About this RNA
The family of this 131-nucleotide RNA sequence from Phyllostomus discolor is "Small nucleolar RNA SNORA68". A search with the family's covariance model found it, with a score of 99 bits. Its family is annotated with RNA processing and nucleolus in the Gene Ontology. U68 is a member of the H/ACA class of small nucleolar RNAs (snoRNAs) which act as guides in the the modification of uridines to pseudouridines. NCBI's taxonomy places the organism under Eukaryota, Teleostomi, Eutheria, Laurasiatheria, Phyllostomus.
RNA sequence: CAGGCACCUAAACCCAAGGACUACUGUUUGCGGUAGCAGCAGUUUAAGCAAAGGUGCUAACAGCAAGCAGAUCUCAUUGCCUUGGGGGCUGUGCCUCUGCCCCUCAAAAUGAAUCAAGAGGUUCUACACCC
Numbered sequence: 001c002a003g004g005c006a007c008c009u010a011a012a013c014c015c016a017a018g019g020a021c022u023a024c025u026g027u028u029u030g031c032g033g034u035a036g037c038a039g040c041a042g043u044u045u046a047a048g049c050a051a052a053g054g055u056g057c058u059a060a061c062a063g064c065a066a067g068c069a070g071a072u073c074u075c076a077u078u079g080c081c082u083u084g085g086g087g088g089c090u091g092u093g094c095c096u097c098u099g100c101c102c103c104u105c106a107a108a109a110u111g112a113a114u115c116a117a118g119a120g121g122u123u124c125u126a127c128a129c130c131c
Stems, first nucleotide, its partner, number of pairs: 003058007019044004024039005070123006082108002084104006